[Rfam]
RNA sequence: GGCCUCCUUCUUUGGGGUGAUCAAUUGUGGAGCCCCCCCAUUGAUCACCCCACAGAGGGUGGCC
Numbered sequence: 001g002g003c004c005u006c007c008u009u010c011u012u013u014g015g016g017g018u019g020a021u022c023a024a025u026u027g028u029g030g031a032g033c034c035c036c037c038c039c040a041u042u043g044a045u046c047a048c049c050c051c052a053c054a055g056a057g058g059g060u061g062g063c064c
Stems, first nucleotide, its partner, number of pairs: 001064004006059006013052013027038001029036002
RNA: mir-9242 microRNA precursor family
Organism: Myotis lucifugus